Record summary
Shown here is a 90-nucleotide sequence from Macleaya cordata, a member of the family "Small nucleolar RNA snoR27".

RNA sequence: UCAGGAUCAGUGAUGUUAGUUUUUACUGCGUUAUCUAUCUGAAAAACCCUAAUGAGGAUUUGAGGUGACAAUCACUUGCUGAGGUCUUGC
Numbered sequence: 001u002c003a004g005g006a007u008c009a010g011u012g013a014u015g016u017u018a019g020u021u022u023u024u025a026c027u028g029c030g031u032u033a034u035c036u037a038u039c040u041g042a043a044a045a046a047c048c049c050u051a052a053u054g055a056g057g058a059u060u061u062g063a064g065g066u067g068a069c070a071a072u073c074a075c076u077u078g079c080u081g082a083g084g085u086c087u088u089g090c
Base pairs, nucleotide, nucleotide: 002089003088004087005086006085007084

The organism belongs to Macleaya, within Eukaryota. Pairs were carried over by alignment from the consensus structure, which was predicted with WAR. Rfam 15.1 lists 649 matches to the family in 212 species.